RNA sequence: AGCCUCAUUCUAGAUGCAAAUGGGCACUGUUGUUCAUGGUGUCCAGAUAUCAUUGAUGUAGCCACACUGAGACAUAGGUUUUUCUGUCAUCACGGUAAUUUUAUUGCAGCAGUGACAAGACUUGUGACCUGU
Number, nucleotide and partner (000 for none) at each position: 001a000002g062003c061004c000005u000006c058007a057008u056009u000010c000011u000012a000013g000014a000015u000016g000017c000018a000019a000020a000021u045022g044023g043024g042025c041026a040027c039028u000029g000030u000031u000032g000033u000034u000035c000036a000037u000038g000039g027040u026041g025042u024043c023044c022045a021046g000047a000048u000049a000050u000051c000052a000053u000054u000055g000056a008057u007058g006059u000060a000061g003062c002063c000064a000065c000066a000067c000068u000069g000070a000071g000072a000073c000074a125075u124076a123077g122078g121079u000080u000081u000082u000083u000084c000085u000086g000087u000088c114089a113090u112091c000092a000093c109094g000095g000096u000097a000098a000099u000100u000101u000102u000103a000104u000105u000106g000107c000108a000109g093110c000111a000112g090113u089114g088115a000116c000117a000118a000119g000120a000121c078122u077123u076124g075125u074126g000127a000128c000129c000130u000131g000132u000
A member of the RNA family "Small nucleolar RNA SNORA1" from Cervus elaphus, 132 nucleotides long.
About the family: ACA1 is a member of the H/ACA class of snoRNA that guide the sites of modification of uridines to pseudouridines.
Gene Ontology terms of the family: RNA processing and nucleolus.
The family's consensus secondary structure was predicted with PFOLD.